[Rfam]
RNA sequence: CUCGUAGAGACAAGAAAGUUACUGUAAUCUGUCAGGUAAUUUUCUUAUCUCUCGAAGU
Numbered sequence: 001c002u003c004g005u006a007g008a009g010a011c012a013a014g015a016a017a018g019u020u021a022c023u024g025u026a027a028u029c030u031g032u033c034a035g036g037u038a039a040u041u042u043u044c045u046u047a048u049c050u051c052u053c054g055a056a057g058u
Stems, first nucleotide, its partner, number of pairs: 002055003006052005013046002015043003021037003
A member of the RNA family "mir-7398 microRNA precursor family" from Monodelphis domestica, 58 nucleotides long. Its family is annotated with miRNA-mediated post-transcriptional gene silencing and RISC complex in the Gene Ontology. The base pairs follow the family's consensus structure, which was predicted with RNAalifold.